[Rfam]
RNA sequence: CAAGCCAGAAGAGGCGCGUCGUUCAGGUAAAGUGUUUGAGGAUCCGGAAUCCAGCAAAAACACUCUAGGGGAUACGACGCCGAGGCAGCGCUCAAACCGGACAACAGCGCUGUCGACCACAAGGGCUGAAUCCCUUGGGUUGUCACCAAUGUUACCCGCAGACAUAUUGUGGGAAUAAGGGUCUUUAACGUGGAAUUAUCGUGCAGGAAGUUUCAGCACAAUCACUUAAGACUCUGGCAAGGUGGGGCGCUUCUGGGUGU
Numbered sequence: 001c002a003a004g005c006c007a008g009a010a011g012a013g014g015c016g017c018g019u020c021g022u023u024c025a026g027g028u029a030a031a032g033u034g035u036u037u038g039a040g041g042a043u044c045c046g047g048a049a050u051c052c053a054g055c056a057a058a059a060a061c062a063c064u065c066u067a068g069g070g071g072a073u074a075c076g077a078c079g080c081c082g083a084g085g086c087a088g089c090g091c092u093c094a095a096a097c098c099g100g101a102c103a104a105c106a107g108c109g110c111u112g113u114c115g116a117c118c119a120c121a122a123g124g125g126c127u128g129a130a131u132c133c134c135u136u137g138g139g140u141u142g143u144c145a146c147c148a149a150u151g152u153u154a155c156c157c158g159c160a161g162a163c164a165u166a167u168u169g170u171g172g173g174a175a176u177a178a179g180g181g182u183c184u185u186u187a188a189c190g191u192g193g194a195a196u197u198a199u200c201g202u203g204c205a206g207g208a209a210g211u212u213u214c215a216g217c218a219c220a221a222u223c224a225c226u227u228a229a230g231a232c233u234c235u236g237g238c239a240a241g242g243u244g245g246g247g248c249g250c251u252u253c254u255g256g257g258u259g260u
Stems, first nucleotide, its partner, number of pairs: 006255006016080007031064007084114009115141004120137006143245005
Annotation:
Shown here is a 260-nucleotide RNA from Limnobaculum parvum, a member of the family "Lysine riboswitch aptamer". From the family's description: Riboswitches are metabolite binding domains within certain messenger RNAs that serve as precision sensors for their corresponding targets. Rfam 15.1 lists 3,224 matches to the family in 1,923 species. The match comes from Rfam's covariance-model search (82 bits). The base pairs follow the family's consensus structure, which is taken from published work.